[Rfam]
RNA sequence: AAUCAAUUGAUGAGAAAAAACUGCAACAAUAUGAUGGAAUACGUUCCAUGAUUCAUGGUAUUUAAGUCUCUGAUGAUU
Dot-bracket structure: (.(((..............................((((....))))..........................)))).
A member of the RNA family "Small nucleolar RNA Z199" from Jatropha curcas, 78 nucleotides long. Its family is annotated with nucleolus and RNA processing in the Gene Ontology. The family has 17 seed sequences and 953 matches in Rfam 15.1. On this family, see Chen et al., Nucleic Acids Res 2003: "The high diversity of snoRNAs in plants: identification and comparative study of 120 snoRNA genes from Oryza sativa". By type it is a C/D-box small nucleolar RNA. Rfam's curators write: snoZ199 is a C/D box small nucleolar RNA, which acts as a methylation guide RNA for sites on 18S and 25S rRNA. Rice snoZ199 is reported to be homologous to Arabidopsis snoR13. The match comes from Rfam's covariance-model search (81 bits).